The record is an 82-nucleotide RNA from Diceros bicornis, which matches "Small nucleolar RNA snR60/Z15/Z230/Z193/J17" in Rfam. Its Rfam clan is "SNORD77 clan". For this family Rfam cites "A computational screen for methylation guide snoRNAs in yeast" (Lowe and Eddy, Science, 1999). By type it is a C/D-box small nucleolar RNA.
[Rfam]
RNA sequence: CCGAUACAAUGAUGAUAACAUAGUUCAGCAGACUCAUGGUGAUGAGCAAUGUCAAGUCUUUCGCUCCUAUCUGAUGUAUCCG
Numbered sequence: 001c002c003g004a005u006a007c008a009a010u011g012a013u014g015a016u017a018a019c020a021u022a023g024u025u026c027a028g029c030a031g032a033c034u035c036a037u038g039g040u041g042a043u044g045a046g047c048a049a050u051g052u053c054a055a056g057u058c059u060u061u062c063g064c065u066c067c068u069a070u071c072u073g074a075u076g077u078a079u080c081c082g
Stems, first nucleotide, its partner, number of pairs: 004079005